ACEA small nucleolar RNA U3: a 216-nucleotide sequence from Cystoisospora suis.
The organism belongs to Cystoisospora, within Eukaryota.
The match comes from Rfam's covariance-model search (106 bits).
Its Rfam clan is "U3 clan".
A reference for the family is Zwieb (1997), "The uRNA database", Nucleic Acids Res.
Rfam classes the family as a C/D-box small nucleolar RNA.

RNA sequence: UCGACUGUACUCGAACAGGAUCACUUCUAUAGUUGAUCUGCUUGUUCACCGUCACAGCGACAGACAACACCUUCAGUCACGAAGAUGAGUCGGACGUCCAGCCUACUCUUUGAAGGGAGGCUCCGAGCAAACAAAAUGUCUGCUCGGCAGCUUUGAUGAUCCUGGUCCAGAGGGUUUACCUCUUUGGUCCAUAGGCGAGGACGAUUCUGAGUGACU
Numbered sequence: 001u002c003g004a005c006u007g008u009a010c011u012c013g014a015a016c017a018g019g020a021u022c023a024c025u026u027c028u029a030u031a032g033u034u035g036a037u038c039u040g041c042u043u044g045u046u047c048a049c050c051g052u053c054a055c056a057g058c059g060a061c062a063g064a065c066a067a068c069a070c071c072u073u074c075a076g077u078c079a080c081g082a083a084g085a086u087g088a089g090u091c092g093g094a095c096g097u098c099c100a101g102c103c104u105a106c107u108c109u110u111u112g113a114a115g116g117g118a119g120g121c122u123c124c125g126a127g128c129a130a131a132c133a134a135a136a137u138g139u140c141u142g143c144u145c146g147g148c149a150g151c152u153u154u155g156a157u158g159a160u161c162c163u164g165g166u167c168c169a170g171a172g173g174g175u176u177u178a179c180c181u182c183u184u185u186g187g188u189c190c191a192u193a194g195g196c197g198a199g200g201a202c203g204a205u206u207c208u209g210a211g212u213g214a215c216u
Stems, first nucleotide, its partner, number of pairs: 002040002006035001009033003017028004045069001052062001076215005095203005101196005112160001119152003124146006167187004172182001